[Rfam]
Small nucleolar RNA SNORA41: a 135-nucleotide sequence from Monodelphis domestica. NCBI's taxonomy places the organism under Eukaryota, Bilateria, Chordata, Mammalia, Monodelphis. From the family's description: ACA41 is a member of the H/ACA class of snoRNA that guide the sites of modification of uridines to pseudouridines. Rfam's curators put it in the seed alignment. The literature on the family includes a 2001 paper in EMBO J by Huttenhofer et al., "RNomics: an experimental approach that identifies 201 candidates for novel, small, non-messenger RNAs in mouse". Rfam 15.1 lists 676 matches to the family in 522 species. Its family is annotated with RNA processing and nucleolus in the Gene Ontology.
RNA sequence: UUCCACAGCUACUGGUCUGCAACUGUUCUCAUCUAUAGCAGUUGUUGUAUUCCACUGUGGGAAAGGAACUGUUACACUGUUAAAUAACCUCUUUCUAAUAUAACAGAAAGUGGGUUCUUUGUGUGACAGACACCU
Numbered sequence: 001u002u003c004c005a006c007a008g009c010u011a012c013u014g015g016u017c018u019g020c021a022a023c024u025g026u027u028c029u030c031a032u033c034u035a036u037a038g039c040a041g042u043u044g045u046u047g048u049a050u051u052c053c054a055c056u057g058u059g060g061g062a063a064a065g066g067a068a069c070u071g072u073u074a075c076a077c078u079g080u081u082a083a084a085u086a087a088c089c090u091c092u093u094u095c096u097a098a099u100a101u102a103a104c105a106g107a108a109a110g111u112g113g114g115u116u117c118u119u120u121g122u123g124u125g126a127c128a129g130a131c132a133c134c135u
Stems, first nucleotide, its partner, number of pairs: 003060004017047001019045007074124004088114003091110006